RNA sequence: AUAAAGGCUAUGAAGAGAAGAGUAAUCAUAUAUGAAGCUUACAGAGAACUCCGGUUGAUGAGAAGGAGCAGCGGAUUUAUGAUGAAACAAGCCUCGGAGCUGCAUACGGAUCUUUUUAUAAAGUGAUGCUAUGACGUAAGUUCACGUUACAGAACAGGAGUAUGAAUAGUACUCUGUAAGGUUAAUAUGGUGACAUAUUAAUAAAAUAGGGUGGUACCGCGAACGAAUUCGCCCCUACA
Numbered sequence: 001a002u003a004a005a006g007g008c009u010a011u012g013a014a015g016a017g018a019a020g021a022g023u024a025a026u027c028a029u030a031u032a033u034g035a036a037g038c039u040u041a042c043a044g045a046g047a048a049c050u051c052c053g054g055u056u057g058a059u060g061a062g063a064a065g066g067a068g069c070a071g072c073g074g075a076u077u078u079a080u081g082a083u084g085a086a087a088c089a090a091g092c093c094u095c096g097g098a099g100c101u102g103c104a105u106a107c108g109g110a111u112c113u114u115u116u117u118a119u120a121a122a123g124u125g126a127u128g129c130u131a132u133g134a135c136g137u138a139a140g141u142u143c144a145c146g147u148u149a150c151a152g153a154a155c156a157g158g159a160g161u162a163u164g165a166a167u168a169g170u171a172c173u174c175u176g177u178a179a180g181g182u183u184a185a186u187a188u189g190g191u192g193a194c195a196u197a198u199u200a201a202u203a204a205a206a207u208a209g210g211g212u213g214g215u216a217c218c219g220c221g222a223a224c225g226a227a228u229u230c231g232c233c234c235c236u237a238c239a
Stems, first nucleotide, its partner, number of pairs: 007100002015095003025083006037072003049068004103133004107128002135146003181202007208236004219232005
Annotation: T-box leader: a 239-nucleotide RNA from Anaerocolumna aminovalerica. The base pairs follow the family's consensus structure, which is taken from published work. It is annotated as a cis-regulatory leader. The organism belongs to Anaerocolumna, within Bacteria.